[Rfam]
RNA: Small nucleolar RNA SNORA65
RNA sequence: CCCGCCACUGUGCCGGCCUUAGCUCGUGGCCUGUAUACUCCAGUGGUGGCUGACAUUAACUCCUUCCCAAGGAAGCAGGGUGGCCCUGACCAGUGGGCAACUCUGCGCCGAAGGGCUCGGAACAGGA
Numbered sequence: 001c002c003c004g005c006c007a008c009u010g011u012g013c014c015g016g017c018c019u020u021a022g023c024u025c026g027u028g029g030c031c032u033g034u035a036u037a038c039u040c041c042a043g044u045g046g047u048g049g050c051u052g053a054c055a056u057u058a059a060c061u062c063c064u065u066c067c068c069a070a071g072g073a074a075g076c077a078g079g080g081u082g083g084c085c086c087u088g089a090c091c092a093g094u095g096g097g098c099a100a101c102u103c104u105g106c107g108c109c110g111a112a113g114g115g116c117u118c119g120g121a122a123c124a125g126g127a
Stems, first nucleotide, its partner, number of pairs: 005046006018033001023028001061120002066115003071109002076105006084097003
Dot-bracket structure: ....((((((.......(....(....)....).......))))))..............((...(((..((...((((((..(((........)))..))))))..))...)))...)).......